RNA sequence: GACAACCCAGCCUUUACUCGGAUCGUCCGGCACGUUCCUGCCGGUGAAGGAGAGCACCA
Numbered sequence: 001g002a003c004a005a006c007c008c009a010g011c012c013u014u015u016a017c018u019c020g021g022a023u024c025g026u027c028c029g030g031c032a033c034g035u036u037c038c039u040g041c042c043g044g045u046g047a048a049g050g051a052g053a054g055c056a057c058c059a
Stems, first nucleotide, its partner, number of pairs: 011050006027044006
RNA: msiK RNA